[Rfam]
RNA sequence: CUUUGGGUGCCAAAAGUGCUGUUUGUGCAGGUAGCAGUCAUCAAUCUACUGCAAAACCAGCACUUCAGGCAGACGGGU
Numbered sequence: 001c002u003u004u005g006g007g008u009g010c011c012a013a014a015a016g017u018g019c020u021g022u023u024u025g026u027g028c029a030g031g032u033a034g035c036a037g038u039c040a041u042c043a044a045u046c047u048a049c050u051g052c053a054a055a056a057c058c059a060g061c062a063c064u065u066c067a068g069g070c071a072g073a074c075g076g077g078u
Stems, first nucleotide, its partner, number of pairs: 004075002009070003014065008023056002026053003030050005